[Rfam]
RNA sequence: GGUGUGUUUUUCCGAACUGUCACCAUGUGGUGGCGUGCCUGGGACAUCCAGGAUAGGAGGCACACCGCUC
Numbered sequence: 001g002g003u004g005u006g007u008u009u010u011u012c013c014g015a016a017c018u019g020u021c022a023c024c025a026u027g028u029g030g031u032g033g034c035g036u037g038c039c040u041g042g043g044a045c046a047u048c049c050a051g052g053a054u055a056g057g058a059g060g061c062a063c064a065c066c067g068c069u070c
Stems, first nucleotide, its partner, number of pairs: 001066007009059001011058003018035007038052004